skipping-rope RNA: a 69-nucleotide RNA sequence. The family's RNA type in Rfam is small RNA.

RNA sequence: AGGAUUUGAGGGCAGAACGGGCAUCUGCCGCCUAGAUGGAGAUGCAGGAGUGUCGCCCUGCCAAACCUU
Numbered sequence: 001a002g003g004a005u006u007u008g009a010g011g012g013c014a015g016a017a018c019g020g021g022c023a024u025c026u027g028c029c030g031c032c033u034a035g036a037u038g039g040a041g042a043u044g045c046a047g048g049a050g051u052g053u054c055g056c057c058c059u060g061c062c063a064a065a066c067c068u069u
Base pairs, nucleotide, nucleotide: 001069002068003067005065006064007063008062011029012028013027014026015025020054021053022052023051031039044061045060046059047058048057